[Rfam]
A. fumigatus snoRNA Afu_263: a 91-nucleotide sequence from Penicillium concentricum. It scores 72 bits against the family's covariance model. Pairs were carried over by alignment from the consensus structure. The family's RNA type in Rfam is C/D-box small nucleolar RNA. Taxonomically the source falls in Penicillium (Eukaryota, Dikarya, saccharomyceta, Pezizomycotina). A reference for the family is Jochl et al. (2008), "Small ncRNA transcriptome analysis from Aspergillus fumigatus suggests a novel mechanism for regulation of protein synthesis", Nucleic Acids Res.

RNA sequence: UUUUGUGAUGAGCAACCAAUAUUAAAGCAUAGUUCACCUGAGAUCUUCGGAUUACUGAACGAAAACAUAUUCCAUUAUACAAUUUCUGAUC
Numbered sequence: 001u002u003u004u005g006u007g008a009u010g011a012g013c014a015a016c017c018a019a020u021a022u023u024a025a026a027g028c029a030u031a032g033u034u035c036a037c038c039u040g041a042g043a044u045c046u047u048c049g050g051a052u053u054a055c056u057g058a059a060c061g062a063a064a065a066c067a068u069a070u071u072c073c074a075u076u077a078u079a080c081a082a083u084u085u086c087u088g089a090u091c
Base pairs, nucleotide, nucleotide: 006019009018010017032060033059034058035057036056042053043052044051045050